[Rfam]
RNA sequence: ACGCAGAGUAGAAGCGUUCAGCCUCGGCGCCCGAGGCGGGAAAUUGCUCUUUCA
Number, nucleotide and partner (000 for none) at each position: 001a000002c000003g000004c000005a050006g049007a048008g047009u046010a045011g000012a000013a000014g000015c039016g000017u000018u041019c040020a000021g037022c036023c035024u034025c033026g032027g000028c000029g000030c000031c000032c026033g025034a024035g023036g022037c021038g000039g015040g019041a018042a000043a000044u000045u010046g009047c008048u007049c006050u005051u000052u000053c000054a000